[Rfam]
RNA sequence: UAGCAUUUAGGAAGUGCUUAGCUGGUUAAAUCAGGUAAUCUGAAUUAAUUAGGUCGUCAUGAGCUUGCAGGUGGGAUACUUGCAGGCU
Numbered sequence: 001u002a003g004c005a006u007u008u009a010g011g012a013a014g015u016g017c018u019u020a021g022c023u024g025g026u027u028a029a030a031u032c033a034g035g036u037a038a039u040c041u042g043a044a045u046u047a048a049u050u051a052g053g054u055c056g057u058c059a060u061g062a063g064c065u066u067g068c069a070g071g072u073g074g075g076a077u078a079c080u081u082g083c084a085g086g087c088u
Stems, first nucleotide, its partner, number of pairs: 002018007024050006031043004063087008
Rfam assigns this 88-nucleotide RNA sequence from Prochlorococcus marinus to the family "Cyanobacterial functional RNA 20". Rfam classes the family as a small RNA.